[Rfam]
This 69-nucleotide RNA from Streptomyces hoynatensis belongs to the Rfam family "ASpks TB sRNA".
It is annotated as an antisense RNA.

RNA sequence: CUUGACGGCGCCGAGCAGCAGCGGCCGCUCCCGCUCCCGCCCGUAGGUGGCGAGCAGCGCCUGGGCCUC
Numbered sequence: 001c002u003u004g005a006c007g008g009c010g011c012c013g014a015g016c017a018g019c020a021g022c023g024g025c026c027g028c029u030c031c032c033g034c035u036c037c038c039g040c041c042c043g044u045a046g047g048u049g050g051c052g053a054g055c056a057g058c059g060c061c062u063g064g065g066c067c068u069c
Stems, first nucleotide, its partner, number of pairs: 015025002028065003032059002037054001041050003